Shown here is an 89-nucleotide RNA from Tyzzerella sp. An114, a member of the family "S10-Clostridia ribosomal protein leader". A search with the family's covariance model found it, with a score of 64 bits.
RNA sequence: UAAGAGCGAUGAAGCAGAAGGUUGCUAAGUUACCCAAUGACUUAGGUUUUUCUGCAGAGCGAUGUCCAGUUCAAGAAACCGGGCGACAA
Number, nucleotide and partner (000 for none) at each position: 001u000002a000003a000004g000005a000006g000007c000008g000009a000010u000011g000012a000013a000014g055015c054016a053017g000018a051019a050020g049021g048022u000023u000024g000025c045026u044027a043028a042029g041030u040031u039032a038033c000034c000035c000036a000037a000038u032039g031040a030041c029042u028043u027044a026045g025046g000047u000048u021049u020050u019051u018052c000053u016054g015055c014056a000057g000058a000059g000060c000061g000062a000063u088064g087065u086066c085067c000068a000069g084070u083071u082072c081073a000074a000075g000076a000077a000078a000079c000080c000081g072082g071083g070084c069085g066086a065087c064088a063089a000

On this family, see Eckert and Weinberg, BMC Microbiol 2020: "Discovery of 20 novel ribosomal leader candidates in bacteria and archaea".
The organism belongs to Tyzzerella, within Bacteria.